Shown here is a 137-nucleotide sequence from Catagonus wagneri, a member of the family "Small nucleolar RNA SNORA4". ACA4 is a member of the H/ACA class of snoRNA that guide the sites of modification of uridines to pseudouridines. The family is grouped with related families in Rfam's "SNORA4 clan". The base pairs follow the family's consensus structure, which was predicted with PFOLD. By type it is an H/ACA-box small nucleolar RNA.

RNA sequence: CUACUAAAUGUUGGUUUUGAGGGGAAGAUUUUUCAUCAUCUUUGUCAGCUCAAGCUAUGUAGGGGAAUAAAACCAUACUCCACAGUGAGCUGUGUGAUUUAUGUGCUGUUCAUUACUAUUUUGUGCUCUGAAAAAUU
Numbered sequence: 001c002u003a004c005u006a007a008a009u010g011u012u013g014g015u016u017u018u019g020a021g022g023g024g025a026a027g028a029u030u031u032u033u034c035a036u037c038a039u040c041u042u043u044g045u046c047a048g049c050u051c052a053a054g055c056u057a058u059g060u061a062g063g064g065g066a067a068u069a070a071a072a073c074c075a076u077a078c079u080c081c082a083c084a085g086u087g088a089g090c091u092g093u094g095u096g097a098u099u100u101a102u103g104u105g106c107u108g109u110u111c112a113u114u115a116c117u118a119u120u121u122u123g124u125g126c127u128c129u130g131a132a133a134a135a136u137u
Base pairs, nucleotide, nucleotide: 004062005061006060008058012057013056014055015054016053017052021050022049023046024045026041027040028039029038074125075124076123077122084114085113086112087111088110089109090108092106093105094104095103